[Rfam]
RNA sequence: GCCGUUCGCUAGGGGAGCUUUAUGCUGAGAGGAAGGACAUCCUUCGACCCUUGGAACCUGAACUGGGUAAUACCAGCGAAGGGAAGCGAAAGUAGUGCUCC
Numbered sequence: 001g002c003c004g005u006u007c008g009c010u011a012g013g014g015g016a017g018c019u020u021u022a023u024g025c026u027g028a029g030a031g032g033a034a035g036g037a038c039a040u041c042c043u044u045c046g047a048c049c050c051u052u053g054g055a056a057c058c059u060g061a062a063c064u065g066g067g068u069a070a071u072a073c074c075a076g077c078g079a080a081g082g083g084a085a086g087c088g089a090a091a092g093u094a095g096u097g098c099u100c101c
Stems, first nucleotide, its partner, number of pairs: 006089005011051004017025002032045005057082003063076004

Source information: Shown here is a 101-nucleotide RNA sequence from Caloramator mitchellensis, a member of the family "TPP riboswitch aptamer (THI element)". Lineage of the source: Bacteria > Bacillati > Clostridia > Clostridiaceae > Caloramator.